[Rfam]
RNA sequence: GGUCAUGAGCGUCAGCGCCCUGCAGCCCCGGCUCGCUGACCGGCAACCCUCCAACCGCGGUGGGGUGCCCCGGGUGACGACCUGGCGACGCGCGUCCGCGCGCCGCAAGCGCGGGCC
Numbered sequence: 001g002g003u004c005a006u007g008a009g010c011g012u013c014a015g016c017g018c019c020c021u022g023c024a025g026c027c028c029c030g031g032c033u034c035g036c037u038g039a040c041c042g043g044c045a046a047c048c049c050u051c052c053a054a055c056c057g058c059g060g061u062g063g064g065g066u067g068c069c070c071c072g073g074g075u076g077a078c079g080a081c082c083u084g085g086c087g088a089c090g091c092g093c094g095u096c097c098g099c100g101c102g103c104c105g106c107a108a109g110c111g112c113g114g115g116c117c
Base pairs, nucleotide, nucleotide: 001082002081003080004079009041011040012039013038014037015036016035024033025032042069043068044067047065048064049063051060052059085106086105087104089102090101091100092099093098
This 117-nucleotide RNA from Tersicoccus phoenicis belongs to the Rfam family "SAM (S-adenosyl methionine) riboswitch aptamer".
It scores 99 bits against the family's covariance model.
Gene Ontology terms of the family: regulation of gene expression and S-adenosylmethionine metabolic process.
The family has 40 seed sequences and 2,360 matches in Rfam 15.1.